[Rfam]
Nucleotides: 092
Stems, first nucleotide, its partner, number of pairs: 001087007011079001013078001015076002023074006029046007049061004
Number, partner (000 for none) and nucleotide at each position: 001087c002086g003085c004084g005083g006082g007081u008000c009000u010000g011079c012000g013078c014000u015076g016075g017000g018000a019000g020000g021000c022000a023074c024073u025072g026071u027070a028069g029046g030045u031044c032043g033042u034041c035040c036000g037000a038000a039000c040035g041034g042033g043032c044031g045030g046029c047000a048000g049061c050060c051059g052058c053000g054000a055000a056000a057000u058052g059051c060050g061049g062000u063000g064000g065000g066000a067000u068000c069028c070027u071026a072025c073024a074023g075016c076015c077000c078013g079011g080000g081007a082006c083005c084004c085003g086002c087001g088000a089000u090000a091000a092000g
The record is a 92-nucleotide sequence, which matches "DUF3800-VII RNA" in Rfam. The family's consensus secondary structure is taken from published work. The family's RNA type in Rfam is small RNA. Rfam's curators put it in the seed alignment.